[Rfam]
RNA sequence: AUUAUGAAAGGGAAUGAAGUUCUCCCUUGGUAUUAAGCCUAAACCGCUUUUAAAGCUAAUGACUUCUGUUGAACA
Dot-bracket structure: .........[[[[..((((((.]]]]...................(((.....)))....)))))).........
About this RNA:
The record is a 75-nucleotide sequence from Defluviitalea raffinosedens, which matches "Fluoride riboswitch aptamer (crcB RNA motif)" in Rfam. Taxonomically the source falls in Defluviitalea (Bacteria, Bacillota, Clostridia, Defluviitaleaceae). A search with the family's covariance model found it, with a score of 49 bits.